[Rfam]
RNA sequence: UAUGGUGGAUAGUCGCGGUUUCUGCUUCGCAGGGAUCGAGGAAAUUCGAGACACGCCCACGACCGCUUCGGCGGUCGCGGAGUAUGGUGCCUGGCGCAAGCCAGGGCAGGGCGACCUGACGACGGCAAAAGCGUCUCUUCGGAGAAGCGAGUCGCCAUAAAGUGCCACAGAAACGAUGUUCCCCGGCGACGGGGAAGUGCAAGGGUAAACUCCACCAGCGUGCAACCCAAAUAGGCGGCGUCCAGCCGCGGGUAGGGGCACCCGCUGCGGCGGGAAGGAAGUCAGGCCCUAGGGAGCAGCUUCCUUAGACAAAUGACUAUCCAACGGCGUAAGCCGGGGACAGAAUCUCGAUUACAGCC
Number, nucleotide and partner (000 for none) at each position: 001u000002a000003u000004g359005g358006u357007g355008g321009a320010u319011a318012g317013u316014c315015g000016c038017g037018g036019u035020u034021u033022c000023u000024g000025c000026u000027u000028c000029g000030c000031a000032g000033g021034g020035a019036u018037c017038g016039a000040g000041g000042a000043a353044a352045u351046u000047c350048g349049a348050g347051a346052c222053a221054c220055g219056c218057c080058c079059a000060c077061g076062a075063c074064c073065g072066c071067u000068u000069c000070g000071g066072c065073g064074g063075u062076c061077g060078c000079g058080g057081a000082g000083u000084a000085u217086g216087g215088u214089g213090c105091c104092u103093g102094g101095c100096g000097c000098a000099a000100g095101c094102c093103a092104g091105g090106g120107c118108a117109g116110g115111g000112c000113g000114a000115c110116c109117u108118g107119a000120c106121g212122a211123c000124g156125g155126c154127a000128a000129a000130a000131g148132c147133g000134u000135c144136u143137c142138u000139u000140c000141g000142g137143a136144g135145a000146a000147g132148c131149g000150a000151g000152u000153c000154g126155c125156c124157a000158u000159a000160a000161a000162g210163u209164g206165c205166c204167a000168c000169a000170g000171a000172a000173a000174c000175g000176a000177u000178g000179u196180u195181c194182c193183c192184c191185g190186g000187c000188g000189a000190c185191g184192g183193g182194g181195a180196a179197g000198u000199g000200c000201a000202a000203g000204g166205g165206u164207a000208a000209a163210c162211u122212c121213c089214a088215c087216c086217a085218g056219c055220g054221u053222g052223c000224a000225a000226c257227c256228c255229a000230a000231a000232u000233a000234g000235g000236c000237g000238g000239c000240g000241u000242c000243c000244a000245g000246c000247c000248g000249c000250g000251g000252g000253u000254a000255g228256g227257g226258g000259c000260a000261c274262c273263c272264g271265c270266u000267g000268c000269g000270g265271c264272g263273g262274g261275a306276a305277g304278g303279a302280a301281g300282u299283c000284a000285g000286g000287c000288c000289c000290u000291a000292g000293g000294g000295a000296g000297c000298a000299g282300c281301u280302u279303c278304c277305u276306u275307a000308g000309a000310c000311a000312a000313a000314u000315g014316a013317c012318u011319a010320u009321c008322c000323a000324a000325c336326g335327g334328c333329g000330u000331a000332a000333g328334c327335c326336g325337g000338g000339g000340a000341c000342a000343g000344a000345a000346u051347c050348u049349c048350g047351a045352u044353u043354a000355c007356a000357g006358c005359c004
The record is a 359-nucleotide sequence from Heliomicrobium modesticaldum, which matches "Bacterial RNase P class B" in Rfam. From the family's description: Ribonuclease P (RNase P) is a ubiquitous endoribonuclease, found in archaea, bacteria and eukarya as well as chloroplasts and mitochondria. The family's RNA type in Rfam is ribozyme. A search with the family's covariance model found it, with a score of 137 bits.